[Rfam]
RNA sequence: AAUAUUAAAUAUCUACUUACUCAUAUAAGCUUAGAGAUAUGGUCUAGGCGUUUCUACCAAAUACCGUAAAUAUUUGACUAUGAGUAGUCCUGAGUGCACA
Numbered sequence: 001a002a003u004a005u006u007a008a009a010u011a012u013c014u015a016c017u018u019a020c021u022c023a024u025a026u027a028a029g030c031u032u033a034g035a036g037a038u039a040u041g042g043u044c045u046a047g048g049c050g051u052u053u054c055u056a057c058c059a060a061a062u063a064c065c066g067u068a069a070a071u072a073u074u075u076g077a078c079u080a081u082g083a084g085u086a087g088u089c090c091u092g093a094g095u096g097c098a099c100a
Stems, first nucleotide, its partner, number of pairs: 018086008029049007058076006
RNA: Purine riboswitch aptamer